This 99-nucleotide RNA from Camphora micrantha belongs to the Rfam family "Small nucleolar RNA Z266". The family's consensus secondary structure was predicted with PFOLD. The match comes from Rfam's covariance-model search (83 bits).
RNA sequence: AUGUGGCAAGAGUGAUGAAUCAAUUAGAUGUGUGAAUGGAAUAUCUUCCCUCAUGAACUUAAACUUUUGAGGCAUUUCAAUUAUUCUGACUUGCCACUC
Numbered sequence: 001a002u003g004u005g006g007c008a009a010g011a012g013u014g015a016u017g018a019a020u021c022a023a024u025u026a027g028a029u030g031u032g033u034g035a036a037u038g039g040a041a042u043a044u045c046u047u048c049c050c051u052c053a054u055g056a057a058c059u060u061a062a063a064c065u066u067u068u069g070a071g072g073c074a075u076u077u078c079a080a081u082u083a084u085u086c087u088g089a090c091u092u093g094c095c096a097c098u099c
Stems, first nucleotide, its partner, number of pairs: 003097008